[Rfam]
RNA sequence: AAGUUCGCAAGAACCAUUUGAAUCAAGUAUUGCAGUGAUUCACAUGAUUCUCAAAAA
Dot-bracket structure: .........((((.(((.(((((((..........))))))).))).))))......
Numbered sequence: 001a002a003g004u005u006c007g008c009a010a011g012a013a014c015c016a017u018u019u020g021a022a023u024c025a026a027g028u029a030u031u032g033c034a035g036u037g038a039u040u041c042a043c044a045u046g047a048u049u050c051u052c053a054a055a056a057a
Stems, first nucleotide, its partner, number of pairs: 010051004015046003019042007